[Rfam]
RNA sequence: UGUAUCGUUGAUGAUUGGCUCCCUCUACUGAACCCUAUGUAGAAGUCUGCCAUUAUUACCCAAUUUCUGUCUGAGAUGCA
Dot-bracket structure: ((((((....................................................................))))))
Source information
Shown here is an 80-nucleotide sequence from Betta splendens, a member of the family "Small nucleolar RNA SNORD100". Gene Ontology terms of the family: nucleolus and RNA processing. Its Rfam clan is "SNORD100 clan". The family's RNA type in Rfam is C/D-box small nucleolar RNA.